Shown here is a 109-nucleotide sequence from Ensifer fredii, a member of the family "EcpR1". Rfam links the family to the GO terms mRNA binding, regulation of translation in response to stress and negative regulation of cell cycle. The family's consensus secondary structure was predicted with WAR. Taxonomically the source falls in Ensifer fredii (Bacteria, Pseudomonadati, Pseudomonadota, Alphaproteobacteria). It is annotated as a small RNA.
RNA sequence: ACCCCAUGAUGCUCAGGUCCGCCGCAUCUCCUGGGUCGUGGGGUCGGUCGGCUGGAUUCCGACGUCCGCGGAUUCCUCGUGCCGCAGUCGGAGCCCAGCCGACCCCCUU
Numbered sequence: 001a002c003c004c005c006a007u008g009a010u011g012c013u014c015a016g017g018u019c020c021g022c023c024g025c026a027u028c029u030c031c032u033g034g035g036u037c038g039u040g041g042g043g044u045c046g047g048u049c050g051g052c053u054g055g056a057u058u059c060c061g062a063c064g065u066c067c068g069c070g071g072a073u074u075c076c077u078c079g080u081g082c083c084g085c086a087g088u089c090g091g092a093g094c095c096c097a098g099c100c101g102a103c104c105c106c107c108u109u
Stems, first nucleotide, its partner, number of pairs: 001044008012035006046104010